Record summary:
This 116-nucleotide sequence from Xaviernesmea oryzae belongs to the Rfam family "ALIL pseudoknot". The family's consensus secondary structure is taken from published work. A search with the family's covariance model found it, with a score of 87 bits. For this family Rfam cites "Apical loop-internal loop RNA pseudoknots: a new type of stimulator of -1 translational frameshifting in bacteria" (Mazauric et al., J Biol Chem, 2008). By type it is a cis-regulatory element. The source organism's lineage runs through Bacteria, Pseudomonadota, Hyphomicrobiales, Rhizobiaceae and Xaviernesmea.
[Rfam]
RNA sequence: GGCUCAUUUCACCAUCGCGAGCUCGACCGCUCCUUCAAGCGAUGAUUUCGUUCAUCAACGAACACCGUGGUGUGUUCGGGGUCGAACCGAUCUGCAGACUGCUGCCGAUCGCCCCG
Numbered sequence: 001g002g003c004u005c006a007u008u009u010c011a012c013c014a015u016c017g018c019g020a021g022c023u024c025g026a027c028c029g030c031u032c033c034u035u036c037a038a039g040c041g042a043u044g045a046u047u048u049c050g051u052u053c054a055u056c057a058a059c060g061a062a063c064a065c066c067g068u069g070g071u072g073u074g075u076u077c078g079g080g081g082u083c084g085a086a087c088c089g090a091u092c093u094g095c096a097g098a099c100u101g102c103u104g105c106c107g108a109u110c111g112c113c114c115c116g
Stems, first nucleotide, its partner, number of pairs: 017030003077116005088111002091108002094105004